[Rfam]
RNA sequence: GCAACACUUUAUAGCAAAUCCGCUUAGCCUGUGAAAC
Dot-bracket structure: ....(((.....(((......)))......)))....